[Rfam]
RNA sequence: AUAUGCAAGUAUUGACUGCCGAAGACAGCAGGUACCGUAAGGUAUAAGGUGAUAACGCCUGCCGAGGAUAACUUCAGAUCGCUCUGAAGUGGACAGAAACUCAGUAAAAUCCGUAUCAGAUACGGGUAUGUAGAGAUUGAUGUGGCCUCCCUGUCUUGUGCAGGGAGGCUUUUUUCGCGGUUAA
Dot-bracket structure: ...........................(((((((((....))).............))))))..................................................................................((((((((((.....))))))))))...............
Shown here is a 184-nucleotide sequence from Clostridium sp. chh4-2, a member of the family "Ribosomal protein L10 leader". It is annotated as a cis-regulatory leader. Gene Ontology term of the family: regulation of gene expression. The base pairs follow the family's consensus structure, which was predicted with CMfinder.